[Rfam]
RNA sequence: GACCACUGUGGAAGAUUCGCUACAUUGACGCAUCACACACGGAAGCCAUUUGCUUCAUAACACGAGCGUUAGGGAAAGUCCCCGGACAAGUGACAGCAAGUGUCACCAUUGACUGGUAUUGGCUUUUCAAAGAUGCUUUUCCCUUGCAAAGACACUUUGGUGGAGCAGUAUGGGUUGAGCUCUUUAUUAAAGCCUGUUUGUCAUAGCACAGUUAUGCGAAUGGUCCUACCAUUUCGGUGGCAGGAUUAACUCAACGGGGCUCACUCUCCAUGUGGU
Numbered sequence: 001g002a003c004c005a006c007u008g009u010g011g012a013a014g015a016u017u018c019g020c021u022a023c024a025u026u027g028a029c030g031c032a033u034c035a036c037a038c039a040c041g042g043a044a045g046c047c048a049u050u051u052g053c054u055u056c057a058u059a060a061c062a063c064g065a066g067c068g069u070u071a072g073g074g075a076a077a078g079u080c081c082c083c084g085g086a087c088a089a090g091u092g093a094c095a096g097c098a099a100g101u102g103u104c105a106c107c108a109u110u111g112a113c114u115g116g117u118a119u120u121g122g123c124u125u126u127u128c129a130a131a132g133a134u135g136c137u138u139u140u141c142c143c144u145u146g147c148a149a150a151g152a153c154a155c156u157u158u159g160g161u162g163g164a165g166c167a168g169u170a171u172g173g174g175u176u177g178a179g180c181u182c183u184u185u186a187u188u189a190a191a192g193c194c195u196g197u198u199u200g201u202c203a204u205a206g207c208a209c210a211g212u213u214a215u216g217c218g219a220a221u222g223g224u225c226c227u228a229c230c231a232u233u234u235c236g237g238u239g240g241c242a243g244g245a246u247u248a249a250c251u252c253a254a255c256g257g258g259g260c261u262c263a264c265u266c267u268c269c270a271u272g273u274g275g276u
Stems, first nucleotide, its partner, number of pairs: 002276005008271005015221006025072007042056005077261002080259004092104004106122003110118001126190001132181001134179001136177001141174003144168004154161002223246005